Overview
Shown here is an 84-nucleotide sequence from Bombyx mori, a member of the family "mir-2807 microRNA precursor family". Taxonomically the source falls in Bombyx (Eukaryota, Arthropoda, Neoptera, Bombycoidea). The family has 8 seed sequences and 5,120 matches in Rfam 15.1. On this family, see Cai et al., Funct Integr Genomics 2010: "Novel microRNAs in silkworm (Bombyx mori)".
Nucleotides: 084
Stems, first nucleotide, its partner, number of pairs: 009077002012074001014072003018068001020066009034052003040046001
Number, partner (000 for none) and nucleotide at each position: 001000u002000a003000a004000a005000a006000g007000u008000u009077a010076a011000c012074u013000c014072g015071u016070a017000u018068g019000g020066a021065g022064u023063u024062g025061g026060a027059a028058c029000c030000u031000u032000u033000g034052c035051c036050u037000a038000c039000c040046u041000u042000g043000a044000c045000c046040g047000c048000u049000a050036g051035g052034g053000g054000c055000g056000c057000u058028g059027u060026u061025c062024c063023a064022a065021u066020u067000g068018c069000a070016u071015a072014c073000a074012a075000a076010u077009u078000u079000g080000a081000g082000u083000u084000a